[Rfam]
RNA sequence: GUUGCCGUAGUCUCUGAUUCGCUUGGUGCAGGUCGGGAACUGGUGAUUUUUUUUGGUUGUUAAAAAAUCUUCCGCCGCCUUAGCAGCAGCCGUAAUCGGCGGAGAGAUUGAUUCGUUCUGUCUGCUCAGCUGGUGGUAUUCCGGAUCCCGCCUUGCAUCAACUGAAUCUGAGCCUGCGGUGAAC
Number, nucleotide and partner (000 for none) at each position: 001g000002u000003u000004g000005c000006c000007g000008u000009a000010g000011u000012c000013u171014c170015u000016g000017a167018u166019u165020c164021g000022c000023u161024u160025g159026g158027u157028g156029c155030a154031g153032g152033u000034c150035g149036g148037g147038a146039a000040c144041u143042g142043g141044u000045g000046a000047u000048u000049u000050u000051u000052u000053u000054u000055g000056g000057u000058u000059g000060u000061u000062a000063a000064a000065a000066a000067a000068u000069c000070u000071u000072c000073c000074g000075c000076c000077g000078c000079c000080u000081u000082a000083g000084c000085a000086g000087c000088a000089g000090c000091c000092g000093u000094a000095a000096u000097c000098g000099g000100c000101g000102g000103a000104g000105a000106g000107a000108u000109u000110g000111a000112u000113u000114c000115g000116u000117u000118c000119u000120g000121u000122c000123u000124g000125c000126u000127c000128a000129g000130c000131u000132g000133g000134u000135g000136g000137u000138a000139u000140u000141c043142c042143g041144g040145a000146u038147c037148c036149c035150g034151c000152c032153u031154u030155g029156c028157a027158u026159c025160a024161a023162c000163u000164g020165a019166a018167u017168c000169u000170g014171a013172g000173c000174c000175u000176g000177c000178g000179g000180u000181g000182a000183a000184c000

Background:
MIR168 microRNA precursor family: a 184-nucleotide RNA sequence from Spinacia oleracea. The family has 10 seed sequences and 518 matches in Rfam 15.1. For this family Rfam cites "MicroRNAs in plants" (Reinhart et al., Genes Dev, 2002).